RNA sequence: UCAACGCAUGUGAAACAAGAGAAUAGCGUUAUAAGAAUUUUGCCGGAUCGUACAUACACGCAGCAAUGGCGUAAGACGUAUUGUGCAAUCAGGCAUUUAGCGGGCUGCGGGUUGCAGCCUGGACGACAAGACGGGACAGGUUCACUCUGGUACCACUGGUGGUUAUCCCUCUUUAUAAACGCGCUGUUUUUCCAGUUGAAAAGCAGGCUACCGAGAUUUGCGCCCCUUGAGCUGGCGACAACCGGGAGGUUGACGGCUUUGCGAUGAGACACGGGGCCAUCGGUUUAGACGCGUCCAGCGUUACUAUGCCCGUAGCUUUGUCACUAA
Numbered sequence: 001u002c003a004a005c006g007c008a009u010g011u012g013a014a015a016c017a018a019g020a021g022a023a024u025a026g027c028g029u030u031a032u033a034a035g036a037a038u039u040u041u042g043c044c045g046g047a048u049c050g051u052a053c054a055u056a057c058a059c060g061c062a063g064c065a066a067u068g069g070c071g072u073a074a075g076a077c078g079u080a081u082u083g084u085g086c087a088a089u090c091a092g093g094c095a096u097u098u099a100g101c102g103g104g105c106u107g108c109g110g111g112u113u114g115c116a117g118c119c120u121g122g123a124c125g126a127c128a129a130g131a132c133g134g135g136a137c138a139g140g141u142u143c144a145c146u147c148u149g150g151u152a153c154c155a156c157u158g159g160u161g162g163u164u165a166u167c168c169c170u171c172u173u174u175a176u177a178a179a180c181g182c183g184c185u186g187u188u189u190u191u192c193c194a195g196u197u198g199a200a201a202a203g204c205a206g207g208c209u210a211c212c213g214a215g216a217u218u219u220g221c222g223c224c225c226c227u228u229g230a231g232c233u234g235g236c237g238a239c240a241a242c243c244g245g246g247a248g249g250u251u252g253a254c255g256g257c258u259u260u261g262c263g264a265u266g267a268g269a270c271a272c273g274g275g276g277c278c279a280u281c282g283g284u285u286u287a288g289a290c291g292c293g294u295c296c297a298g299c300g301u302u303a304c305u306a307u308g309c310c311c312g313u314a315g316c317u318u319u320g321u322c323a324c325u326a327a
Base pairs, nucleotide, nucleotide: 005021007019009017041095042094043093044092046090047089051085052084053083054082058079059078060077063070064069102318103317104316105315106314107313108312109311110310111309112308120297121296122295123294124293125292133170134169135168142162143161144160145159146158181208182207184206185205186204187203189201190200191199192198210284211283212282213281214280222277223276224275225274226273236255237254239252240251241250242249243248